RNA sequence: AACCCCCUGAAAUCUGCACAUGAAACUUGGCGGAAUCAUCAGAUGUUCAGGGGGCCCAAAGCAGGCGCGUUGCCUGCAAAGGAUUAUAACGCAUGUUCAACAUAACACAAUAUACCCCCGCCAUAAGU
Numbered sequence: 001a002a003c004c005c006c007c008u009g010a011a012a013u014c015u016g017c018a019c020a021u022g023a024a025a026c027u028u029g030g031c032g033g034a035a036u037c038a039u040c041a042g043a044u045g046u047u048c049a050g051g052g053g054g055c056c057c058a059a060a061g062c063a064g065g066c067g068c069g070u071u072g073c074c075u076g077c078a079a080a081g082g083a084u085u086a087u088a089a090c091g092c093a094u095g096u097u098c099a100a101c102a103u104a105a106c107a108c109a110a111u112a113u114a115c116c117c118c119c120g121c122c123a124u125a126a127g128u
Stems, first nucleotide, its partner, number of pairs: 003054009012044005022037002028123006

This 128-nucleotide sequence from Mangrovibacter sp. MFB070 belongs to the Rfam family "Pseudoknot of the regulatory region of the repBA gene".
Taxonomically the source falls in Mangrovibacter (Bacteria, Gammaproteobacteria, Enterobacterales, Enterobacteriaceae).
The family's consensus secondary structure is taken from published work.
It is annotated as a cis-regulatory element.
The literature on the family includes a 1995 paper in J Bacteriol by Athanasopoulos et al., "The replication of an IncL/M plasmid is subject to antisense control".